Actinobacteria sRNA Ms_IGR-5: a 242-nucleotide RNA from Rhodococcus spelaei.
[Rfam]
RNA sequence: ACACGAGGAAGGAGGUGGUCUGAAGUUGAAGAACUACAGGACGCGUGAGGUGGCUGUCCGCUAGCCGCUACCGCUGAGUGGAAUUCGCGAGAGCGGAGCCUGCGGAGCAGAAGGGUGCUCCGUGCGCGUCUGCGGCUGGCGAAUCUCAGGCAGUCACCCGGCCCCCGAGCCCCCGGUAAUUCCGACCGGGACCGCACGACGACAAGCGUCCGUCGCGCGGUAUGGCUCGGGGGUCGUUCGGC
Numbered sequence: 001a002c003a004c005g006a007g008g009a010a011g012g013a014g015g016u017g018g019u020c021u022g023a024a025g026u027u028g029a030a031g032a033a034c035u036a037c038a039g040g041a042c043g044c045g046u047g048a049g050g051u052g053g054c055u056g057u058c059c060g061c062u063a064g065c066c067g068c069u070a071c072c073g074c075u076g077a078g079u080g081g082a083a084u085u086c087g088c089g090a091g092a093g094c095g096g097a098g099c100c101u102g103c104g105g106a107g108c109a110g111a112a113g114g115g116u117g118c119u120c121c122g123u124g125c126g127c128g129u130c131u132g133c134g135g136c137u138g139g140c141g142a143a144u145c146u147c148a149g150g151c152a153g154u155c156a157c158c159c160g161g162c163c164c165c166c167g168a169g170c171c172c173c174c175g176g177u178a179a180u181u182c183c184g185a186c187c188g189g190g191a192c193c194g195c196a197c198g199a200c201g202a203c204a205a206g207c208g209u210c211c212g213u214c215g216c217g218c219g220g221u222a223u224g225g226c227u228c229g230g231g232g233g234u235c236g237u238u239c240g241g242c
Base pairs, nucleotide, nucleotide: 014058015057016056017055018054019053059141060140061139062138063137064136065135067133068132072128073127074126159236160235161234162233163232164231165230166229167228168227169226170225171224172190173189174188175187176186177185
Taxonomically the source falls in Rhodococcus (Bacteria, Bacillati, Mycobacteriales, Nocardiaceae). It scores 126 bits against the family's covariance model. The base pairs follow the family's consensus structure. A reference for the family is Li et al. (2013), "Identification of small RNAs in Mycobacterium smegmatis using heterologous Hfq", RNA.